A member of the RNA family "Small nucleolar RNA SNORD70" from Elachura formosa, 89 nucleotides long. NCBI's taxonomy places the organism under Eukaryota, Eumetazoa, Teleostomi, Sauria, Elachura. For this family Rfam cites "RNomics: an experimental approach that identifies 201 candidates for novel, small, non-messenger RNAs in mouse" (Huttenhofer et al., EMBO J, 2001). About the family: snoRNA HBII-234 belongs to the C/D family of snoRNAs. It is the human orthologue of the mouse MBII-234 and is predicted to guide 2'O-ribose methylation of the small 18S rRNA on position A512. It is hosted, together with HBII-95, by the core C/D box snoRNA protein encoding gene NOP5/NOP58. By type it is a C/D-box small nucleolar RNA.
RNA sequence: CUGACUGUUGCCGAUGAUGAAACGUAGUUAAACUGAAAUUAAUGAUGUAAUUCAAAUUCCUUCGUCACUACCACUGAGACAGCAGAUGG
Numbered sequence: 001c002u003g004a005c006u007g008u009u010g011c012c013g014a015u016g017a018u019g020a021a022a023c024g025u026a027g028u029u030a031a032a033c034u035g036a037a038a039u040u041a042a043u044g045a046u047g048u049a050a051u052u053c054a055a056a057u058u059c060c061u062u063c064g065u066c067a068c069u070a071c072c073a074c075u076g077a078g079a080c081a082g083c084a085g086a087u088g089g
Stems, first nucleotide, its partner, number of pairs: 001089003005085006012078001